Rfam assigns this 81-nucleotide sequence from Acanthosepion pharaonis to the family "mir-980 microRNA precursor family". The family has 8 seed sequences and 121 matches in Rfam 15.1.
Nucleotides: 081
Base pairs, nucleotide, nucleotide: 004078005077006076007075008074010072011071012070013069014068015067017065018064019063020062023059024058028054029053030052031051032050
Number, partner (000 for none) and nucleotide at each position: 001000a002000u003000u004078u005077c006076a007075u008074g009000a010072g011071a012070g013069c014068u015067c016000u017065a018064a019063a020062a021000a022000a023059a024058g025000u026000a027000g028054c029053u030052c031051u032050c033000a034000a035000u036000a037000g038000g039000u040000c041000u042000u043000g044000a045000a046000a047000a048000u049000u050032g051031g052030g053029a054028g055000c056000u057000g058024c059023u060000u061000u062020u063019u064018u065017u066000a067015g068014a069013g070012c071011u072010c073000g074008c075007a076006u077005g078004a079000a080000u081000u